[Rfam]
RNA sequence: UUGCAAUGCUGACGACUCAGGACACCUUUGGCUUGGCCAUGAAAAUAAAUGUAAGAUCAAAUAUGAGCAAA
Numbered sequence: 001u002u003g004c005a006a007u008g009c010u011g012a013c014g015a016c017u018c019a020g021g022a023c024a025c026c027u028u029u030g031g032c033u034u035g036g037c038c039a040u041g042a043a044a045a046u047a048a049a050u051g052u053a054a055g056a057u058c059a060a061a062u063a064u065g066a067g068c069a070a071a
Stems, first nucleotide, its partner, number of pairs: 001070004
Source information
This 71-nucleotide sequence from Oncorhynchus kisutch belongs to the Rfam family "Small nucleolar RNA SNORD58". A search with the family's covariance model found it, with a score of 43 bits. snoRNA U58 is found in introns 1, 3 and 6 of the ribosomal protein RPL17 gene in humans. Its family is annotated with RNA processing and nucleolus in the Gene Ontology. Rfam 15.1 lists 2,484 matches to the family in 680 species.